Overview
U4 spliceosomal RNA: a 140-nucleotide RNA from Daphnia galeata. The family's consensus secondary structure is taken from published work. U4 small nuclear RNA (U4 snRNA) is a component of the major U2-dependent spliceosome. Gene Ontology terms of the family: spliceosomal tri-snRNP complex assembly and U4 snRNP. The family's RNA type in Rfam is spliceosomal small nuclear RNA. The organism belongs to Daphnia, within Eukaryota.
[Rfam]
RNA sequence: AGCUUUGCGCAGUGGCAAUAUCGUAACCGAUGAGGGUCUCCCGAGGUGCGAUUAUUGCUAGUUGAAAACUUUAACCAAUACCCCGCCUUGAUAGUGUGAAACAUCAUUGUCAACGGCAAUUUUUGAAGGUCCCUAAGGGA
Numbered sequence: 001a002g003c004u005u006u007g008c009g010c011a012g013u014g015g016c017a018a019u020a021u022c023g024u025a026a027c028c029g030a031u032g033a034g035g036g037u038c039u040c041c042c043g044a045g046g047u048g049c050g051a052u053u054a055u056u057g058c059u060a061g062u063u064g065a066a067a068a069c070u071u072u073a074a075c076c077a078a079u080a081c082c083c084c085g086c087c088u089u090g091a092u093a094g095u096g097u098g099a100a101a102c103a104u105c106a107u108u109g110u111c112a113a114c115g116g117c118a119a120u121u122u123u124u125g126a127a128g129g130u131c132c133c134u135a136a137g138g139g140a
Base pairs, nucleotide, nucleotide: 020052021051022050023049024048026047027046028045034042035041036040085117086116087115088113089112090111091110092109093108094107095106096105130140131139132138133137